Annotation: Small Cajal body specific RNA 6: a 275-nucleotide RNA. Rfam classes the family as a small Cajal body RNA. Rfam's curators put it in the seed alignment.
[Rfam]
RNA sequence: GGUCGUGAUGAUUGGUAAAAGGUCUGAUUGCACUGAAUGUCACAGUCCCUUUGUUGCCCUCAACUCCCAGCAGCCCAUUUUUUCCCUCCCGUCACAUUUAAGUCAUGUGUAUGGGAUCAUGGAGCAGCUGAUAAUUUGGGAUUCUGUCAGUGUGUGUUUCUGAGAGUGAUCGACUCACAGCUGACGAGUAUCCAACAAAACCAGUUACACAGGAGACUGACGAGUGGCAGUCAUGGGUGUGAUGGUGCAUGAUCUCAAGUUUUCAAUCUGAGACC
Numbered sequence: 001g002g003u004c005g006u007g008a009u010g011a012u013u014g015g016u017a018a019a020a021g022g023u024c025u026g027a028u029u030g031c032a033c034u035g036a037a038u039g040u041c042a043c044a045g046u047c048c049c050u051u052u053g054u055u056g057c058c059c060u061c062a063a064c065u066c067c068c069a070g071c072a073g074c075c076c077a078u079u080u081u082u083u084c085c086c087u088c089c090c091g092u093c094a095c096a097u098u099u100a101a102g103u104c105a106u107g108u109g110u111a112u113g114g115g116a117u118c119a120u121g122g123a124g125c126a127g128c129u130g131a132u133a134a135u136u137u138g139g140g141a142u143u144c145u146g147u148c149a150g151u152g153u154g155u156g157u158u159u160c161u162g163a164g165a166g167u168g169a170u171c172g173a174c175u176c177a178c179a180g181c182u183g184a185c186g187a188g189u190a191u192c193c194a195a196c197a198a199a200a201c202c203a204g205u206u207a208c209a210c211a212g213g214a215g216a217c218u219g220a221c222g223a224g225u226g227g228c229a230g231u232c233a234u235g236g237g238u239g240u241g242a243u244g245g246u247g248c249a250u251g252a253u254c255u256c257a258a259g260u261u262u263u264c265a266a267u268c269u270g271a272g273a274c275c
Stems, first nucleotide, its partner, number of pairs: 001275004037255001039253003046229001048227002051224002064215004068130004073125002088115005094110004138193001140192003144188002153179004159173002161169001
U88 is small Cajal body specific RNA (scaRNA). scaRNAs are a novel class of small nuclear RNAs which localise to the Cajal bodies. U88 is found associated with both fibrillarin and Gar1p and co-localises with coilin in Cajal bodies. Rfam links the family to the GO terms RNA processing and nucleolus.